Rfam assigns this 143-nucleotide sequence from Paraburkholderia phymatum to the family "Group II catalytic intron D1-D4-7".
RNA sequence: CCCGUGUACGACCAGCGGUAGCCUAGGAAGGCAUCGGAAGCUGGAACGGCUUUCGGUGAAGCCCUUCGGAAAGCCGUAGUCCGAAAGCGUGUGCCGUCGCGAGGCGGCAUAUGGAGGCUCCAAGCAGCGACAGGGCCAAGACG
Number, nucleotide and partner (000 for none) at each position: 001c000002c018003c017004g016005u014006g013007u000008a000009c000010g000011a000012c000013c006014a005015g000016c004017g003018g002019u000020a000021g000022c000023c000024u000025a000026g000027g067028a066029a065030g064031g063032c058033a057034u056035c055036g054037g053038a052039a051040g050041c049042u048043g047044g000045a000046a000047c043048g042049g041050c040051u039052u038053u037054c036055g035056g034057u033058g032059a000060a000061g000062c000063c031064c030065u029066u028067c027068g000069g000070a000071a000072a000073g000074c000075c000076g000077u000078a000079g000080u000081c000082c087083g000084a000085a000086a000087g082088c113089g112090u111091g110092u000093g000094c000095c000096g000097u104098c103099g000100c000101g000102a000103g098104g097105c000106g000107g000108c000109a000110u091111a090112u089113g088114g000115a000116g000117g136118c135119u134120c133121c000122a000123a000124g000125c000126a000127g000128c000129g000130a000131c000132a000133g120134g119135g118136c117137c000138a000139a000140g000141a000142c000143g000
Group II introns are found in rRNA, tRNA and mRNA of organelles in fungi, plants and protists, and also in mRNA in bacteria. Lineage of the source: Bacteria > Pseudomonadati > Betaproteobacteria > Paraburkholderia > Paraburkholderia phymatum. Pairs were carried over by alignment from the consensus structure.